[Rfam]
RNA sequence: UAAUUAUUAUACGUUGUACCGUAGACAGCAGGAGCCUACUUAAGGCUUAAUAGCCUGCCGAGGUGUUGGAUAAAUUAAAGGAAGUAUGCCUUUCUUUAGAUGAAGUCUUCCUCACGUCUACGCAGGCGUGGGGUUUUUUAUUGGACUAA
Number, nucleotide and partner (000 for none) at each position: 001u000002a000003a000004u000005u000006a000007u000008u000009a000010u000011a000012c000013g000014u000015u000016g000017u000018a000019c000020c000021g000022u000023a000024g000025a000026c000027a000028g058029c057030a056031g055032g054033a000034g046035c045036c044037u000038a000039c000040u000041u000042a000043a000044g036045g035046c034047u000048u000049a000050a000051u000052a000053g000054c032055c031056u030057g029058c028059c000060g000061a000062g000063g000064u000065g000066u000067u000068g000069g000070a000071u000072a000073a000074a000075u000076u000077a000078a000079a000080g000081g000082a000083a000084g000085u000086a000087u000088g000089c000090c000091u000092u000093u000094c000095u000096u000097u000098a000099g000100a000101u000102g000103a000104a000105g000106u000107c000108u000109u000110c133111c132112u131113c130114a129115c128116g127117u126118c125119u000120a000121c000122g000123c000124a000125g118126g117127c116128g115129u114130g113131g112132g111133g110134u000135u000136u000137u000138u000139u000140a000141u000142u000143g000144g000145a000146c000147u000148a000149a000
The record is a 149-nucleotide RNA from Pelagirhabdus alkalitolerans, which matches "Ribosomal protein L10 leader" in Rfam. The family's consensus secondary structure was predicted with CMfinder. It is annotated as a cis-regulatory leader. A search with the family's covariance model found it, with a score of 79 bits. This family is a putative r-protein leader autoregulatory structure found in B. subtilis and other low-GC Gram-positive bacteria. It is located in the 5' untranslated regions of mRNAs encoding ribosomal proteins L10 and L12 (rplJ-rplL). A Rho-independent transcription terminator structure that is probably involved in regulation is included at the 3' end.